The record is an 82-nucleotide sequence from Octopus sinensis, which matches "mir-980 microRNA precursor family" in Rfam.
RNA sequence: AGUUUCUCGUUGCCGUUCAUCAGACAGUUUUGCUUUUGCUAGAAUCUAGCAAAAACUGUCUGAUGAACGGCAACGAGAAACU
Dot-bracket structure: ...((((((((((((.((((..((....(((((...............))))).....))..)))).))))))))))))...